[Rfam]
RNA sequence: UCUUCAUUUCACAUACUCUCUCGUCACCCUGACCGGUGAGAGAGUGUGUGAAAUGAAGAGA
Numbered sequence: 001u002c003u004u005c006a007u008u009u010c011a012c013a014u015a016c017u018c019u020c021u022c023g024u025c026a027c028c029c030u031g032a033c034c035g036g037u038g039a040g041a042g043a044g045u046g047u048g049u050g051a052a053a054u055g056a057a058g059a060g061a
Stems, first nucleotide, its partner, number of pairs: 001059007010050001012048006019041004
RNA: mir-8364 microRNA precursor family